c-di-AMP riboswitch aptamer (ydaO/yuaA leader): a 152-nucleotide sequence from Paenibacillus oryzae.
Rfam describes the family as follows. This family represents a conserved RNA structure found upstream of the ydaO and yuaA genes in Bacillus subtilis and related genes in other bacteria.
Its family is annotated with cyclic-di-AMP binding and regulation of gene expression in the Gene Ontology.
The organism belongs to Paenibacillus, within Bacteria.

[Rfam]
RNA sequence: UCAAAUUUAUCGCUGAAUCCUCUUUUGAGGAACGGGGGAACCAACGAAGCCAUAUGGCUUCAGGGGUGAAUUCUUUCUAGGUUACAGAAAGGACGGGGACUCUCAAACCCGAAUCCGACAGCUAACCUCGUAAGCGUUAUGGGAGAGAAUAU
Numbered sequence: 001u002c003a004a005a006u007u008u009a010u011c012g013c014u015g016a017a018u019c020c021u022c023u024u025u026u027g028a029g030g031a032a033c034g035g036g037g038g039a040a041c042c043a044a045c046g047a048a049g050c051c052a053u054a055u056g057g058c059u060u061c062a063g064g065g066g067u068g069a070a071u072u073c074u075u076u077c078u079a080g081g082u083u084a085c086a087g088a089a090a091g092g093a094c095g096g097g098g099a100c101u102c103u104c105a106a107a108c109c110c111g112a113a114u115c116c117g118a119c120a121g122c123u124a125a126c127c128u129c130g131u132a133a134g135c136g137u138u139a140u141g142g143g144a145g146a147g148a149a150u151a152u
Stems, first nucleotide, its partner, number of pairs: 011136004018031003032131006042063001064116003072092007095110003